[Rfam]
RNA sequence: GUGCCCUUUUAAGGUUGUCGCAGUACUUUAAGAGGCUAACACAGAAGGGUAAAGGAACUCUCCAUAAAACCCAGAGAGGAAAACUACACCUCCUCUUUGGAUCCUGUCUGGAGUCACAAAU
Numbered sequence: 001g002u003g004c005c006c007u008u009u010u011a012a013g014g015u016u017g018u019c020g021c022a023g024u025a026c027u028u029u030a031a032g033a034g035g036c037u038a039a040c041a042c043a044g045a046a047g048g049g050u051a052a053a054g055g056a057a058c059u060c061u062c063c064a065u066a067a068a069a070c071c072c073a074g075a076g077a078g079g080a081a082a083a084c085u086a087c088a089c090c091u092c093c094u095c096u097u098u099g100g101a102u103c104c105u106g107u108c109u110g111g112a113g114u115c116a117c118a119a120a121u
Stems, first nucleotide, its partner, number of pairs: 002051009014040004019035001021032001060113005071100007079092002

Shown here is a 121-nucleotide RNA sequence, a member of the family "Small nucleolar RNA SNORA26". The sequence is in the family's curated seed alignment. From the family's description: The snoRNA HBI-6 belong to the H/ACA family of snoRNAs, guiding the pseudouridylation of position U4522 if the 28S rRNA. HBI-6 is the human orthologue of mouse MBI-6 snoRNA. Gene Ontology terms of the family: RNA processing and nucleolus. Its Rfam clan is "SNORA27 clan". Pairs were carried over by alignment from the consensus structure, which was predicted with RNAalifold. A reference for the family is Huttenhofer et al. (2001), "RNomics: an experimental approach that identifies 201 candidates for novel, small, non-messenger RNAs in mouse", EMBO J.